[Rfam]
Overview:
The record is a 67-nucleotide sequence from Buteo japonicus, which matches "Selenocysteine insertion sequence 1" in Rfam. For this family Rfam cites "A survey of metazoan selenocysteine insertion sequences" (Lambert et al., Biochimie, 2002). It scores 37 bits against the family's covariance model. Rfam's curators write: The incorporation of selenocysteine into a protein sequence is directed by an in-frame UGA codon (usually a stop codon) within the coding region of the mRNA. Selenoprotein mRNAs contain a conserved secondary structure in the 3' UTR that is required for the distinction of UGA stop from UGA selenocysteine. The family's consensus secondary structure is taken from published work.
RNA sequence: CACGUCUCCAUGAAGGCUUGGCCCGAAAGCCCCCGGUGUGGGGCGGGCCUGGCCUGAUCCUGCCGGG
Numbered sequence: 001c002a003c004g005u006c007u008c009c010a011u012g013a014a015g016g017c018u019u020g021g022c023c024c025g026a027a028a029g030c031c032c033c034c035g036g037u038g039u040g041g042g043g044c045g046g047g048c049c050u051g052g053c054c055u056g057a058u059c060c061u062g063c064c065g066g067g
Stems, first nucleotide, its partner, number of pairs: 001067001003065002015054004020049005030043003